[Rfam]
RNA sequence: AUUGAAAGUUUGAGGCCAUAGCAGAAGUGUUCAUGGUGCAGCCUGUCAGAUUCUAGCAGAAUUUGCAGAUUUGUUCA
Numbered sequence: 001a002u003u004g005a006a007a008g009u010u011u012g013a014g015g016c017c018a019u020a021g022c023a024g025a026a027g028u029g030u031u032c033a034u035g036g037u038g039c040a041g042c043c044u045g046u047c048a049g050a051u052u053c054u055a056g057c058a059g060a061a062u063u064u065g066c067a068g069a070u071u072u073g074u075u076c077a
Stems, first nucleotide, its partner, number of pairs: 014043003021076001023074001025072002027039003047065007
The record is a 77-nucleotide RNA sequence from Crocodylus porosus, which matches "Mammalian CPEB3 ribozyme" in Rfam.
Gene Ontology term of the family: RNA nuclease activity.
Taxonomically the source falls in Crocodylus (Eukaryota, Bilateria, Amniota, Longirostres).
The match comes from Rfam's covariance-model search (38 bits).
Pairs were carried over by alignment from the consensus structure, which is taken from published work.